[Rfam]
RNA sequence: UGGACAUUUAGAUUUCUUUUUCUUUCUCCUUUUGUGGUGAUAAUUAUACAUAAGUGUCCUUCAUUAACAUAGAAACUUUCGGUUCAUUCUUCUCAAGUUAAUAAGGACUGUAUCGUUCCACUUCUGACACUU
Numbered sequence: 001u002g003g004a005c006a007u008u009u010a011g012a013u014u015u016c017u018u019u020u021u022c023u024u025u026c027u028c029c030u031u032u033u034g035u036g037g038u039g040a041u042a043a044u045u046a047u048a049c050a051u052a053a054g055u056g057u058c059c060u061u062c063a064u065u066a067a068c069a070u071a072g073a074a075a076c077u078u079u080c081g082g083u084u085c086a087u088u089c090u091u092c093u094c095a096a097g098u099u100a101a102u103a104a105g106g107a108c109u110g111u112a113u114c115g116u117u118c119c120a121c122u123u124c125u126g127a128c129a130c131u132u
Base pairs, nucleotide, nucleotide: 002059003058004057005056006055007054008053009052010051023043024042025040026039028037029036070126071125072124073123074122089105090104091103

This 132-nucleotide RNA from Platysternon megacephalum belongs to the Rfam family "Small Cajal body specific RNA 24". Rfam 15.1 lists 689 matches to the family in 502 species. scaRNAs are a specific class of small nuclear RNAs which localise to the Cajal bodies and guide the modification of RNA polymerase II transcribed spliceosomal RNAs U1, U2, U4, U5 and U12. ACA12 belongs to the H/ACA box class of guide RNAs as it has the predicted hairpin-hinge-hairpin-tail structure,the conserved H/ACA-box motifs and is found associated with GAR1. It is annotated as a small Cajal body RNA. A search with the family's covariance model found it, with a score of 77 bits. Its family is annotated with RNA processing, Cajal body and nucleolus in the Gene Ontology.